Mammalian CPEB3 ribozyme: a 78-nucleotide RNA sequence from Alligator mississippiensis. It scores 36 bits against the family's covariance model. Rfam describes the family as follows. The mammalian CPEB3 ribozyme is a self cleaving RNA located in the second intron of the CPEB3 gene which belongs to a family of genes regulating messenger RNA polyadenylation. Lineage of the source: Eukaryota > Eumetazoa > Gnathostomata > Crocodylia > Alligator. The family's consensus secondary structure is taken from published work.
RNA sequence: GGUUGCAAGUUUGAGGCCAAACUAGAAGUACUCACAGAGAGUGGCCUGUCAGGUUCUAAUGAAUCUGCAAGUUCUGCU
Dot-bracket structure: ..............[[[[..(.(((((((...........))]]]]...(((((((....)))))))....))))).)
Numbered sequence: 001g002g003u004u005g006c007a008a009g010u011u012u013g014a015g016g017c018c019a020a021a022c023u024a025g026a027a028g029u030a031c032u033c034a035c036a037g038a039g040a041g042u043g044g045c046c047u048g049u050c051a052g053g054u055u056c057u058a059a060u061g062a063a064u065c066u067g068c069a070a071g072u073u074c075u076g077c078u
Stems, first nucleotide, its partner, number of pairs: 015046004021078001023076005028042002050067007